This 149-nucleotide RNA sequence from Virgibacillus phasianinus belongs to the Rfam family "Ribosomal protein L10 leader".

RNA sequence: AAAUAUGAAUACGUUGUACCGUAGACAGCAGGUGCGAAACAAUCGCUUAAUAUCCUGCCGAGGUGUUUAAAAGCAAAUGAAAUAAUCUAUAUAGGUUAUGAUUUGUAUAAAAACCUCCAUGUCUGCAUGGAGGUUUUUCUUAUGACCCU
Numbered sequence: 001a002a003a004u005a006u007g008a009a010u011a012c013g014u015u016g017u018a019c020c021g022u023a024g025a026c027a028g029c030a031g032g033u034g035c036g037a038a039a040c041a042a043u044c045g046c047u048u049a050a051u052a053u054c055c056u057g058c059c060g061a062g063g064u065g066u067u068u069a070a071a072a073g074c075a076a077a078u079g080a081a082a083u084a085a086u087c088u089a090u091a092u093a094g095g096u097u098a099u100g101a102u103u104u105g106u107a108u109a110a111a112a113a114c115c116u117c118c119a120u121g122u123c124u125g126c127a128u129g130g131a132g133g134u135u136u137u138u139c140u141u142a143u144g145a146c147c148c149u
Stems, first nucleotide, its partner, number of pairs: 028058005034046003113134009
The match comes from Rfam's covariance-model search (83 bits). The family's RNA type in Rfam is cis-regulatory leader. NCBI's taxonomy places the organism under Bacteria, Bacillati, Bacillota, Bacilli, Virgibacillus.